[Rfam]
The family of this 107-nucleotide sequence from Populus tomentosa is "MIR474 microRNA precursor family". Taxonomically the source falls in Populus (Eukaryota, Viridiplantae, Streptophyta, Euphyllophyta). Rfam links the family to the GO terms miRNA-mediated post-transcriptional gene silencing and RISC complex. The family's consensus secondary structure was predicted with WAR.
RNA sequence: UUUAAAAGUUAUUGGGUUUAGCCGGGUAACUGAACUCAAUUUUAUUGGAUCCUGUUAGACAAUGUUAUUGGGUCUUGCCAAGCCAGAUCCAACAAUAUUUUUUAACU
Numbered sequence: 001u002u003u004a005a006a007a008g009u010u011a012u013u014g015g016g017u018u019u020a021g022c023c024g025g026g027u028a029a030c031u032g033a034a035c036u037c038a039a040u041u042u043u044a045u046u047g048g049a050u051c052c053u054g055u056u057a058g059a060c061a062a063u064g065u066u067a068u069u070g071g072g073u074c075u076u077g078c079c080a081a082g083c084c085a086g087a088u089c090c091a092a093c094a095a096u097a098u099u100u101u102u103u104a105a106c107u
Stems, first nucleotide, its partner, number of pairs: 001105002004102006012092008021083002025079005032052001034050001036048005056071001058069002